Shown here is a 175-nucleotide RNA from Butyrivibrio sp. INlla14, a member of the family "Clostridiales-1 RNA". Lineage of the source: Bacteria > Bacillati > Bacillota > Lachnospirales > Butyrivibrio. The family has 194 seed sequences and 1,172 matches in Rfam 15.1.
[Rfam]
RNA sequence: UACAAUAAGGGAUUCAAAGUCAUAAAUUUUUCAUGCUUGCAUGAAAAAAUUUAUGACCUUGAAGACCAAACAAGUAUGAGGAAAAAAGGAAUUUUUAUGAAAUAAAAAUUACGAUUUCCGAAUACUUGUAGAAUUGCGAGAGCUGUGUAGCAGCGGAGCAAUUCGUAUUAUUGUA
Dot-bracket structure: (((((((..(..(..((.(((((((((((((((((....))))).)))))))))))).))..)..)...((((((((..((((....(.((((((((.....)))))))).)...))))..)))))))).(((((((....((((.....))))...)))))))....)))))))